The record is a 144-nucleotide RNA sequence from Vibrio maritimus, which matches "FMN riboswitch aptamer (RFN element)" in Rfam. Lineage of the source: Bacteria > Pseudomonadati > Pseudomonadota > Gammaproteobacteria > Vibrio. Rfam's curators write: The RFN element is a highly conserved domain that is found frequently in the 5'-untranslated regions of prokaryotic mRNAs that encode for flavin mononucleotide (FMN) biosynthesis and transport proteins.
RNA sequence: AUCUAUUCUCAGGGCGGGGCGAAAUUCCCCACCGGCGGUAAAUCAUCAUGAUAAGCCGCGAGCGCCUGGUACUCUGUAUCAGGGUCAGCAGAUCUGGUUUGAAUCCAGAGCCGACGGUUAUAGUCCGGAUGGGAGAGGAUAAGA
Numbered sequence: 001a002u003c004u005a006u007u008c009u010c011a012g013g014g015c016g017g018g019g020c021g022a023a024a025u026u027c028c029c030c031a032c033c034g035g036c037g038g039u040a041a042a043u044c045a046u047c048a049u050g051a052u053a054a055g056c057c058g059c060g061a062g063c064g065c066c067u068g069g070u071a072c073u074c075u076g077u078a079u080c081a082g083g084g085u086c087a088g089c090a091g092a093u094c095u096g097g098u099u100u101g102a103a104u105c106c107a108g109a110g111c112c113g114a115c116g117g118u119u120a121u122a123g124u125c126c127g128g129a130u131g132g133g134a135g136a137g138g139a140u141a142a143g144a
Stems, first nucleotide, its partner, number of pairs: 004141007017029003031124002033113002035059004055111001062089002093109005115127003